[Rfam]
RNA: BsrC
RNA sequence: GAAAUCUAAAACAACGAAAGCCCUACCUCUCUUCCAUCCUUGCGGCUCCGAUGACCGCGCCAGUGCGAUUCGGAUCUUCAAAGCAUGC
Number, nucleotide and partner (000 for none) at each position: 001g000002a000003a000004a000005u000006c000007u000008a000009a000010a000011a000012c000013a000014a000015c000016g000017a000018a000019a000020g000021c000022c000023c000024u000025a000026c000027c000028u000029c000030u000031c000032u000033u000034c000035c067036a000037u000038c000039c063040u062041u059042g058043c057044g056045g055046c000047u053048c000049c000050g000051a000052u000053g047054a000055c045056c044057g043058c042059g041060c000061c000062a040063g039064u000065g000066c000067g035068a000069u000070u000071c000072g000073g000074a000075u000076c000077u000078u000079c000080a000081a000082a000083g000084c000085a000086u000087g000088c000